[Rfam]
RNA sequence: CCCGUGUUCCGGGGUCGGUGAGAAUCCGAACCGGCGGUGACAGUCCGCGAACCCUGCUUCCGCAGGGCCGAUCCGGUGAAAUUCCGGUACCGACGGUGAUGCACGGCUCAGGCCGUGCUAGUCCGGAUGAGAGGAACGCGCG
Numbered sequence: 001c002c003c004g005u006g007u008u009c010c011g012g013g014g015u016c017g018g019u020g021a022g023a024a025u026c027c028g029a030a031c032c033g034g035c036g037g038u039g040a041c042a043g044u045c046c047g048c049g050a051a052c053c054c055u056g057c058u059u060c061c062g063c064a065g066g067g068c069c070g071a072u073c074c075g076g077u078g079a080a081a082u083u084c085c086g087g088u089a090c091c092g093a094c095g096g097u098g099a100u101g102c103a104c105g106g107c108u109c110a111g112g113c114c115g116u117g118c119u120a121g122u123c124c125g126g127a128u129g130a131g132a133g134g135a136a137c138g139c140g141c142g
Base pairs, nucleotide, nucleotide: 003140004139005138006137007136008135009134010133016028017027018026032092033091034048035047036046037045043090044089052067053066073087074086075085076084094125095124096123
FMN riboswitch aptamer (RFN element): a 142-nucleotide RNA from Leucobacter sp. 7(1). Lineage of the source: Bacteria > Actinomycetota > Actinomycetes > Microbacteriaceae > Leucobacter.